[Rfam]
RNA sequence: UUCCCGCUUCACCUCCCUGAGCGGGAGCCUGCAAGGGCAUUCGCCCCGGUUGAUAACAGCCGGGGUUUUUUCU
Numbered sequence: 001u002u003c004c005c006g007c008u009u010c011a012c013c014u015c016c017c018u019g020a021g022c023g024g025g026a027g028c029c030u031g032c033a034a035g036g037g038c039a040u041u042c043g044c045c046c047c048g049g050u051u052g053a054u055a056a057c058a059g060c061c062g063g064g065g066u067u068u069u070u071u072c073u
Stems, first nucleotide, its partner, number of pairs: 003025006027038003044065008

The family of this 73-nucleotide RNA from Vogesella sp. LIG4 is "Burkholderia RNA 7 (anti-hemB)". The literature on the family includes a 2007 paper in Nucleic Acids Res by Weinberg et al., "Identification of 22 candidate structured RNAs in bacteria using the CMfinder comparative genomics pipeline". About the family: This RNA motif was identified by computational search in b-proteobacteria Burkholderia. Co-purified with Hfq, expression confirmed by Northern blot.